[Rfam]
RNA: Small nucleolar RNA Z102/R77
Organism: Lathyrus oleraceus
RNA sequence: GAAUGACGUGAUGAUUGGUUUUUUCCCUAUUGGUUUGAUGGCCUGGAUGAUGGCAUUUUUGUAUUAGCUCUAUCUGAUCAUUC
Dot-bracket structure: .((((...............................(...(((........)))..).....................)))).